[Rfam]
RNA sequence: AACAUCCUGCGGUGUGCGUAACUUAUUUAUGUCUAAAACCGAUGUUAGUUUUACGGAAGUUCGAUAUUUAGAGGCCAACAUCAAGCCUUUCUUUGAGAAGGAAGAUGAACGGUAACUGUGAGAACAUCCACCUGCGAGUAGCGGGUUUUUGGACAUUUACGAGGGACGGCACGUGCGGGGGUUCU
Number, nucleotide and partner (000 for none) at each position: 001a000002a183003c000004a000005u180006c179007c178008u177009g176010c175011g174012g172013u171014g170015u169016g000017c168018g167019u166020a000021a000022c000023u000024u000025a000026u000027u000028u000029a000030u000031g154032u153033c152034u151035a149036a148037a147038a146039c145040c144041g000042a000043u000044g000045u000046u000047a000048g000049u000050u000051u000052u000053a000054c000055g129056g128057a127058a000059g125060u124061u123062c122063g000064a000065u000066a119067u000068u000069u000070a117071g116072a000073g000074g113075c112076c111077a000078a000079c000080a000081u105082c104083a000084a000085g000086c101087c100088u099089u098090u097091c000092u000093u000094u000095g000096a000097g090098a089099a088100g087101g086102a000103a000104g082105a081106u000107g000108a000109a000110c000111g076112g075113u074114a000115a000116c071117u070118g000119u066120g000121a000122g062123a061124a060125c059126a000127u057128c056129c055130a000131c000132c000133u000134g000135c000136g000137a000138g000139u000140a000141g000142c000143g000144g040145g039146u038147u037148u036149u035150u000151g034152g033153a032154c031155a000156u000157u000158u000159a000160c000161g000162a000163g000164g000165g000166a019167c018168g017169g015170c014171a013172c012173g000174u011175g010176c009177g008178g007179g006180g005181g000182u000183u002184c000185u000
RNA: 6S / SsrS RNA